[Rfam]
RNA: Molybdenum/Tungsten riboswitch aptamer (Moco RNA motif)
RNA sequence: AUUGCCAUAACUCCGAGCUCGUUAGGCUAAGUUCAAUCGAAUAAGCGUGGUGAGCCAGUGACAGGUCGUCACAAGGGCAUAGUUGGAAAUGAUUAUGCCUCCCGUGUUUGGAAAGGUGUUCCGUGGCGCAACAA
Numbered sequence: 001a002u003u004g005c006c007a008u009a010a011c012u013c014c015g016a017g018c019u020c021g022u023u024a025g026g027c028u029a030a031g032u033u034c035a036a037u038c039g040a041a042u043a044a045g046c047g048u049g050g051u052g053a054g055c056c057a058g059u060g061a062c063a064g065g066u067c068g069u070c071a072c073a074a075g076g077g078c079a080u081a082g083u084u085g086g087a088a089a090u091g092a093u094u095a096u097g098c099c100u101c102c103c104g105u106g107u108u109u110g111g112a113a114a115g116g117u118g119u120u121c122c123g124u125g126g127c128g129c130a131a132c133a134a
Stems, first nucleotide, its partner, number of pairs: 009120003013116002017055008026046002031042004058072005075100011101111002